[Rfam]
RNA sequence: AUCGAUCCCAGAGGAGUGAUGCCUGAGGACACAGAACCAUGUGGGCAAAAUGCCUUGUUGAUUCGUCUGUGUUCUCAGGUCACCCCUUUGGGCCACAU
Number, nucleotide and partner (000 for none) at each position: 001a000002u000003c000004g000005a000006u000007c092008c091009c000010a000011g088012a087013g086014g085015a000016g083017u082018g081019a080020u000021g000022c000023c000024u000025g076026a075027g074028g073029a072030c071031a070032c069033a068034g067035a000036a000037c000038c000039a000040u000041g000042u000043g000044g000045g000046c000047a000048a000049a000050a000051u000052g000053c000054c000055u000056u000057g000058u000059u000060g000061a000062u000063u000064c000065g000066u000067c034068u033069g032070u031071g030072u029073u028074c027075u026076c025077a000078g000079g000080u019081c018082a017083c016084c000085c014086c013087u012088u011089u000090g000091g008092g007093c000094c000095a000096c000097a000098u000
RNA: MIR398 microRNA precursor family
Organism: Zingiber officinale